RNA sequence: GGAGCUCGCCUUUCAGGCAUCCUCUCCCAAAACUUUCAAAGCCGGCCCUUGUGGCCGGCUUUUCUUUUGCUUGUGC
Numbered sequence: 001g002g003a004g005c006u007c008g009c010c011u012u013u014c015a016g017g018c019a020u021c022c023u024c025u026c027c028c029a030a031a032a033c034u035u036u037c038a039a040a041g042c043c044g045g046c047c048c049u050u051g052u053g054g055c056c057g058g059c060u061u062u063u064c065u066u067u068u069g070c071u072u073g074u075g076c
Stems, first nucleotide, its partner, number of pairs: 008018004039061009
Description: This 76-nucleotide sequence from Novosphingobium barchaimii belongs to the Rfam family "Makes More Granules Regulator RNA (mmgR)". The family's RNA type in Rfam is small RNA. It scores 50 bits against the family's covariance model. About the family: SuhB later renamed mmgR (makes more granules regulator) was a putative non-coding RNA found multiple times in the Agrobacterium tumefaciens genome and related alpha-proteobacteria. Other non-coding RNAs uncovered in the same analysis include: speF, ybhL, metA, and serC.Several studies inSinorhizobium meliloti showed that suhB element is indeed a non-coding RNA:firstly it was detected on Northern blot and called Sm8RNA, secondly in an RNAseq study referred to as SmelC689.The mutant phenotype's (strain lacking the small RNA) cytoplasm contains higher content of polyhydroxybutyrate (PBH)storage granules than wild type strain. The sRNA is required to limit the PBH intracellular accumulation when the nitrogen-fixing Sinorhizobium meliloti is under condition of surplus carbon in relation to nitrogen. It has been renamed to mmgR. Further study confirmed that mmgR fine-tunes the regulation of PBH storage.Northern blot confirmed the expression of the sRNA in other rhizobia species. MmgR homologues were found in most alpha-proteobacteria. Lineage of the source: Bacteria > Pseudomonadota > Sphingomonadaceae > Novosphingobium > Novosphingobium barchaimii.